[Rfam]
RNA sequence: CUUCAACGACCCCAACCACAACGGCAGUUCAGGCAACCGCCCCUGCCCAUACGUGGCCAGCAACGCCUGCGCCUC
Dot-bracket structure: ...............((.....)).......(.....((...(((.(((....))).)))...))....).....